[Rfam]
RNA: Small nucleolar RNA SNORA43
RNA sequence: UUUGUCCUGUGUCUGUCAGCACCACAGGCACAGCACAGCUGCUUAGCUGUGUCUGUCACAUCAGGGCUGGGGGCAAGUGGCUAUUUCUGCACUCAGUGUUCAGAAGCCAGUAAGCACUGAAUAGUGUUUGGCUGAUAGCCUCACAUUU
Numbered sequence: 001u002u003u004g005u006c007c008u009g010u011g012u013c014u015g016u017c018a019g020c021a022c023c024a025c026a027g028g029c030a031c032a033g034c035a036c037a038g039c040u041g042c043u044u045a046g047c048u049g050u051g052u053c054u055g056u057c058a059c060a061u062c063a064g065g066g067c068u069g070g071g072g073g074c075a076a077g078u079g080g081c082u083a084u085u086u087c088u089g090c091a092c093u094c095a096g097u098g099u100u101c102a103g104a105a106g107c108c109a110g111u112a113a114g115c116a117c118u119g120a121a122u123a124g125u126g127u128u129u130g131g132c133u134g135a136u137a138g139c140c141u142c143a144c145a146u147u148u
Stems, first nucleotide, its partner, number of pairs: 004067006024056006079140003087131003093120001097116004102111001